[Rfam]
This 100-nucleotide sequence from Sphingomonas changnyeongensis belongs to the Rfam family "Glycine riboswitch aptamer". It scores 56 bits against the family's covariance model.
RNA sequence: GGAGGCCGCGCGGGAGAGUUUUUCCGUUCCUUCGGGGGCGGGGGACGCCGAAGGAGCAACCGCCCCGGAAUCUCUCAGGCUGUGGGACCGCGCUGGCCUU
Numbered sequence: 001g002g003a004g005g006c007c008g009c010g011c012g013g014g015a016g017a018g019u020u021u022u023u024c025c026g027u028u029c030c031u032u033c034g035g036g037g038g039c040g041g042g043g044g045a046c047g048c049c050g051a052a053g054g055a056g057c058a059a060c061c062g063c064c065c066c067g068g069a070a071u072c073u074c075u076c077a078g079g080c081u082g083u084g085g086g087a088c089c090g091c092g093c094u095g096g097c098c099u100u
Base pairs, nucleotide, nucleotide: 006095008093009092010091011090012089013088020045021044022043023042024041025040026039027038047080048079049078050076051075054074055073056072060068061067